[Rfam]
RNA sequence: CCCUUCUCAAUGAGCUCCUUCCUGCCGUAAAAUCAGUGGCAGCCUAUGGAUUCGCACGAGAAGAAAAUUAAGUGCUCAGUGCUGGCAUGUUCACCUUCUGGCUUUAGAUGGGUGAUUAGCCAGGGCUGUGGGACACUG
Number, nucleotide and partner (000 for none) at each position: 001c000002c000003c063004u062005u061006c060007u059008c058009a000010a000011u000012g000013a000014g055015c054016u050017c049018c048019u000020u000021c000022c042023u041024g040025c039026c038027g037028u036029a000030a000031a000032a000033u000034c000035a000036g028037u027038g026039g025040c024041a023042g022043c000044c000045u000046a000047u000048g018049g017050a016051u000052u000053c000054g015055c014056a000057c000058g008059a007060g006061a005062a004063g003064a000065a000066a000067a000068u000069u000070a000071a000072g000073u000074g000075c130076u000077c128078a127079g126080u000081g000082c000083u000084g000085g000086c000087a000088u000089g000090u000091u000092c000093a000094c000095c111096u110097u000098c000099u107100g000101g000102c000103u000104u000105u000106a000107g099108a000109u000110g096111g095112g000113u000114g000115a000116u000117u000118a000119g000120c000121c000122a000123g000124g000125g000126c079127u078128g077129u000130g075131g000132g000133a000134c000135a000136c000137u000138g000
RNA: Small nucleolar RNA SNORA75
Organism: Platysternon megacephalum